The family of this 86-nucleotide RNA sequence from Botrytis fragariae is "Small nucleolar RNA R38". Pairs were carried over by alignment from the consensus structure, which was predicted with PFOLD. NCBI's taxonomy places the organism under Eukaryota, Ascomycota, Pezizomycotina, sordariomyceta, Botrytis.
[Rfam]
RNA sequence: CAUAUGUUGUGAUGAAAAACACAGUCAACAGUUAUCCCUGUCUUAAAGAAUACAUGUGGAUUUUAUAAUUAGACUCUGAACAUAUU
Numbered sequence: 001c002a003u004a005u006g007u008u009g010u011g012a013u014g015a016a017a018a019a020c021a022c023a024g025u026c027a028a029c030a031g032u033u034a035u036c037c038c039u040g041u042c043u044u045a046a047a048g049a050a051u052a053c054a055u056g057u058g059g060a061u062u063u064u065a066u067a068a069u070u071a072g073a074c075u076c077u078g079a080a081c082a083u084a085u086u
Base pairs, nucleotide, nucleotide: 002085003084004083005082006081007080
Rfam classes the family as a C/D-box small nucleolar RNA.